[Rfam]
RNA sequence: UUCUUAUCAAGAGAGAUCGAGGGAAAGGCCCUAUGACGUCUCGGCAACAGAUUCUAUAUUAGAAAACUGUGCCAACUCCUACAAAUGCUUAGGCAUUUGAAAGAUGAGAA
Numbered sequence: 001u002u003c004u005u006a007u008c009a010a011g012a013g014a015g016a017u018c019g020a021g022g023g024a025a026a027g028g029c030c031c032u033a034u035g036a037c038g039u040c041u042c043g044g045c046a047a048c049a050g051a052u053u054c055u056a057u058a059u060u061a062g063a064a065a066a067c068u069g070u071g072c073c074a075a076c077u078c079c080u081a082c083a084a085a086u087g088c089u090u091a092g093g094c095a096u097u098u099g100a101a102a103g104a105u106g107a108g109a110a
Stems, first nucleotide, its partner, number of pairs: 001110008013042005021031003026080003043073004048069002052064003077102001082099006
This 110-nucleotide RNA from Alkalihalobacillus alcalophilus belongs to the Rfam family "SAM riboswitch aptamer (S box leader)".
The match comes from Rfam's covariance-model search (94 bits).
About the family: The SAM riboswitch is found upstream of a number of genes which code for proteins involved in methionine or cysteine biosynthesis in Gram-positive bacteria.